[Rfam]
RNA sequence: UCAUUGCUACAGCCGAGCGCACGGACAUGAGCUGUGCGGCGGGGGACCCACGAAGGACUGGGGUGAAUCCGGCACUGCCGGAGGGAGACUUCCUCCUCCCAACCCGUCAGCUAACCCCGUAGGCUGCACAGGAAGGGUGG
Numbered sequence: 001u002c003a004u005u006g007c008u009a010c011a012g013c014c015g016a017g018c019g020c021a022c023g024g025a026c027a028u029g030a031g032c033u034g035u036g037c038g039g040c041g042g043g044g045g046a047c048c049c050a051c052g053a054a055g056g057a058c059u060g061g062g063g064u065g066a067a068u069c070c071g072g073c074a075c076u077g078c079c080g081g082a083g084g085g086a087g088a089c090u091u092c093c094u095c096c097u098c099c100c101a102a103c104c105c106g107u108c109a110g111c112u113a114a115c116c117c118c119g120u121a122g123g124c125u126g127c128a129c130a131g132g133a134a135g136g137g138u139g140g
Base pairs, nucleotide, nucleotide: 011125012124013123014122018038019037020036021035022034023033024032039120040119041118042117043116044115049060050059061105062104063103069081070080071079072078084099085098086097087096